A member of the RNA family "mir-204 microRNA precursor family" from Danionella cerebrum, 88 nucleotides long. NCBI's taxonomy places the organism under Eukaryota, Vertebrata, Teleostomi, Danionidae, Danionella. Pairs were carried over by alignment from the consensus structure, which was predicted with RNAalifold. Gene Ontology terms of the family: miRNA-mediated post-transcriptional gene silencing and RISC complex.
RNA sequence: AUGUGACUUAUGAACUUCCCUUUGUCAUCCUAUGCCUGGAGUUAUAGAGGGGGCUGGGAAGUCAAAGGGAUGCUCAGAUGUCAUCACA
Numbered sequence: 001a002u003g004u005g006a007c008u009u010a011u012g013a014a015c016u017u018c019c020c021u022u023u024g025u026c027a028u029c030c031u032a033u034g035c036c037u038g039g040a041g042u043u044a045u046a047g048a049g050g051g052g053g054c055u056g057g058g059a060a061g062u063c064a065a066a067g068g069g070a071u072g073c074u075c076a077g078a079u080g081u082c083a084u085c086a087c088a
Base pairs, nucleotide, nucleotide: 017070018069019068020067021066022065024063028059029058030057031056032055034054035053036052037051